A member of the RNA family "mir-338 microRNA precursor family" from Galemys pyrenaicus, 65 nucleotides long.
A search with the family's covariance model found it, with a score of 74 bits.
Gene Ontology terms of the family: RISC complex and miRNA-mediated post-transcriptional gene silencing.
RNA sequence: UCCGCAGCAAUAUCCUGGUGCUGAGUGAUGACUCGCUACUCCAGCAUCAGUGAUUUUGUUGCAGA
Numbered sequence: 001u002c003c004g005c006a007g008c009a010a011u012a013u014c015c016u017g018g019u020g021c022u023g024a025g026u027g028a029u030g031a032c033u034c035g036c037u038a039c040u041c042c043a044g045c046a047u048c049a050g051u052g053a054u055u056u057u058g059u060u061g062c063a064g065a
Stems, first nucleotide, its partner, number of pairs: 006060005012054003015050009
Dot-bracket structure: .....(((((.((((((((((((..................))))))))).))).))))).....